[Rfam]
RNA sequence: CGACUGCGAUGAUGCGGAAGGUUGCCGACACACCCGGCCGCUUUGCCAUGGCGAGUGUGUGGGAAAUUUUCGCGGAGAAUGUCUAUUUCAAAAUAGGCGAAAA
Numbered sequence: 001c002g003a004c005u006g007c008g009a010u011g012a013u014g015c016g017g018a019a020g021g022u023u024g025c026c027g028a029c030a031c032a033c034c035c036g037g038c039c040g041c042u043u044u045g046c047c048a049u050g051g052c053g054a055g056u057g058u059g060u061g062g063g064a065a066a067u068u069u070u071c072g073c074g075g076a077g078a079a080u081g082u083c084u085a086u087u088u089c090a091a092a093a094u095a096g097g098c099g100a101a102a103a
Stems, first nucleotide, its partner, number of pairs: 014073003018070004025062003080102001082100002086097003
The family of this 103-nucleotide RNA sequence from Mesobacillus persicus is "S10-Clostridia ribosomal protein leader". Taxonomically the source falls in Mesobacillus (Bacteria, Bacillota, Bacilli, Caryophanales). On this family, see Eckert and Weinberg, BMC Microbiol 2020: "Discovery of 20 novel ribosomal leader candidates in bacteria and archaea". By type it is a cis-regulatory leader.